[Rfam]
RNA: Alphaproteobacterial sRNA ar7
RNA sequence: UAUCGACAGUUCGUCGGUCGCCGGUUCUCCAACCCGUCCCCCGUUGGGUUCCGGCUGAUGCGGCAGCCUCAUUCCCCUCUCCGGGCUGCCGCUUUGAGUGUAGUGAUAUGGCCGUUGUGGUAUACCCUCACCACAACGGUCAAUCAUU
Numbered sequence: 001u002a003u004c005g006a007c008a009g010u011u012c013g014u015c016g017g018u019c020g021c022c023g024g025u026u027c028u029c030c031a032a033c034c035c036g037u038c039c040c041c042c043g044u045u046g047g048g049u050u051c052c053g054g055c056u057g058a059u060g061c062g063g064c065a066g067c068c069u070c071a072u073u074c075c076c077c078u079c080u081c082c083g084g085g086c087u088g089c090c091g092c093u094u095u096g097a098g099u100g101u102a103g104u105g106a107u108a109u110g111g112c113c114g115u116u117g118u119g120g121u122a123u124a125c126c127c128u129c130a131c132c133a134c135a136a137c138g139g140u141c142a143a144u145c146a147u148u
Stems, first nucleotide, its partner, number of pairs: 021054004027048001031045003058094001060092009106144001109142012